[Rfam]
RNA: Translational regulator of tfoXVC
RNA sequence: AUUCCAGAUGUGGUGCUUUCGCAUCACUCCGGCAGCAAGCGAAGGUGUCAUUGGCGCCCGUGGUAUAGUCCCCCGGCUAUACCACGAUUUUUUCUU
Numbered sequence: 001a002u003u004c005c006a007g008a009u010g011u012g013g014u015g016c017u018u019u020c021g022c023a024u025c026a027c028u029c030c031g032g033c034a035g036c037a038a039g040c041g042a043a044g045g046u047g048u049c050a051u052u053g054g055c056g057c058c059c060g061u062g063g064u065a066u067a068g069u070c071c072c073c074c075g076g077c078u079a080u081a082c083c084a085c086g087a088u089u090u091u092u093u094c095u096u
Base pairs, nucleotide, nucleotide: 010027011026012025013024014023015022016021032040033039044058045057046056047055048054049053059086060085061084062083063082064081065080066079067078068077069076070075